[Rfam]
This 80-nucleotide RNA sequence from Jaculus jaculus belongs to the Rfam family "mir-3473 microRNA precursor family". Taxonomically the source falls in Jaculus (Eukaryota, Eumetazoa, Chordata, Gnathostomata). The base pairs follow the family's consensus structure, which was predicted with RNAalifold. The match comes from Rfam's covariance-model search (78 bits).
RNA sequence: ACCACUAAGCCAUCUCUCCAGCCCAAAAUAUAUUUUUUAAAAGAUAAUUGCUGGAUGGGCUGGAGAGAUGGCUUAGCGGU
Number, nucleotide and partner (000 for none) at each position: 001a000002c079003c078004a000005c076006u075007a074008a073009g072010c071011c070012a069013u068014c067015u066016c065017u064018c063019c062020a061021g060022c059023c058024c057025a000026a000027a000028a000029u000030a000031u000032a000033u000034u000035u000036u000037u000038u000039a000040a000041a000042a000043g000044a000045u000046a000047a000048u000049u000050g000051c000052u000053g000054g000055a000056u000057g024058g023059g022060c021061u020062g019063g018064a017065g016066a015067g014068a013069u012070g011071g010072c009073u008074u007075a006076g005077c000078g003079g002080u000